[Rfam]
RNA sequence: GCUGCGGGCCGGGCCCCUCUGGCGAGACACUGACGUCUCGUGAUGUCGGACCGCAUCG
Dot-bracket structure: .....((.((((.........(((((((......)))))))....)))).))......
RNA: terC RNA
Organism: Salipiger marinus